About this RNA
A member of the RNA family "Plastid-psbA-3 3UTR RNA" from Mikania micrantha, 57 nucleotides long. The family's RNA type in Rfam is cis-regulatory element. The family's consensus secondary structure was predicted with LocARNA. Plastid psbA-3 is a non-coding RNA (ncRNA) present in plastids. The match comes from Rfam's covariance-model search (54 bits).

RNA sequence: AAAUAAGCAAUAGCUUCCCUCUUGUUUUAUCAAAAGGACGUUAUUGCUCCUUUUUUU
Numbered sequence: 001a002a003a004u005a006a007g008c009a010a011u012a013g014c015u016u017c018c019c020u021c022u023u024g025u026u027u028u029a030u031c032a033a034a035a036g037g038a039c040g041u042u043a044u045u046g047c048u049c050c051u052u053u054u055u056u057u
Base pairs, nucleotide, nucleotide: 001053002052003051006048007047008046009045010044011043012042013041014040019036020035022033023032024031